Shown here is an 83-nucleotide sequence from Hordeum vulgare, a member of the family "Small nucleolar RNA R16". The base pairs follow the family's consensus structure, which was predicted with PFOLD. For this family Rfam cites "Purified box C/D snoRNPs are able to reproduce site-specific 2'-O-methylation of target RNA in vitro" (Galardi et al., Mol Cell Biol, 2002). The family's RNA type in Rfam is C/D-box small nucleolar RNA.
RNA sequence: GUUGCAAAUGAUGUUAAAUAUUAUAUGCUAAACACUGAAUCUUUCUUAUGUUUACAAAACUCCGCUUAUUAUCUGAUGGCACC
Numbered sequence: 001g002u003u004g005c006a007a008a009u010g011a012u013g014u015u016a017a018a019u020a021u022u023a024u025a026u027g028c029u030a031a032a033c034a035c036u037g038a039a040u041c042u043u044u045c046u047u048a049u050g051u052u053u054a055c056a057a058a059a060c061u062c063c064g065c066u067u068a069u070u071a072u073c074u075g076a077u078g079g080c081a082c083c
Stems, first nucleotide, its partner, number of pairs: 003081002005078002